[Rfam]
RNA sequence: CCGUGCUAAGUGGGGAAUUAGCGGUGCCCUGUACUUGCAAUCCGCUCUAGCAAGACCGAAUCCCACUUUCGAGGAAUCAGAUGUGAGGUCUGCCUCACGUACGUCGAUGUUGAGACUUCGGUCCUAUGCAAUAGAACGUCAUGAACCAUGUCAGGUCCGGAAGGAAGCAGCAUUAAGUGGCCCAUUCUAUGUGCCGUAGGGCAGCCGAGGUUGAGUCGAAUGCGUGAGUAACGCUUGUGUUUGAUAUUCGACAAAGUGGUGCACGG
Numbered sequence: 001c002c003g004u005g006c007u008a009a010g011u012g013g014g015g016a017a018u019u020a021g022c023g024g025u026g027c028c029c030u031g032u033a034c035u036u037g038c039a040a041u042c043c044g045c046u047c048u049a050g051c052a053a054g055a056c057c058g059a060a061u062c063c064c065a066c067u068u069u070c071g072a073g074g075a076a077u078c079a080g081a082u083g084u085g086a087g088g089u090c091u092g093c094c095u096c097a098c099g100u101a102c103g104u105c106g107a108u109g110u111u112g113a114g115a116c117u118u119c120g121g122u123c124c125u126a127u128g129c130a131a132u133a134g135a136a137c138g139u140c141a142u143g144a145a146c147c148a149u150g151u152c153a154g155g156u157c158c159g160g161a162a163g164g165a166a167g168c169a170g171c172a173u174u175a176a177g178u179g180g181c182c183c184a185u186u187c188u189a190u191g192u193g194c195c196g197u198a199g200g201g202c203a204g205c206c207g208a209g210g211u212u213g214a215g216u217c218g219a220a221u222g223c224g225u226g227a228g229u230a231a232c233g234c235u236u237g238u239g240u241u242u243g244a245u246a247u248u249c250g251a252c253a254a255a256g257u258g259g260u261g262c263a264c265g266g
Base pairs, nucleotide, nucleotide: 001266002265003264004263005262006261010056011055012030013029014028015027017025018024019023034054035053036052037051038050063259064258065257066256067255068254069253071249072248073247075245078243079242080241081240082239083238084237085236086235087234091230092229095227096226097225098224099223100222103221104220106217107216108215114212115211116210117209118208119207120206121205122204123200124199125198126197127196128195129191130190132189133188134187135186136185138181139180140179141178142177148173149172150171151170156165157164158163